[Rfam]
RNA: Small nucleolar RNA snoR100
RNA sequence: CAAUUAGGGAAGCAUGGUACUGUGUACAUAAAUCAAUCUUGGUACGUACUAAUGUCUGCUUGCUCUGAUGCCCUCCGGCUCUGAUUUUGCGGGCCUGGAAACGUGCCUACUUUU
Dot-bracket structure: ...........((((......))))..................(.((......(((.(((................)))...))).......)).)..................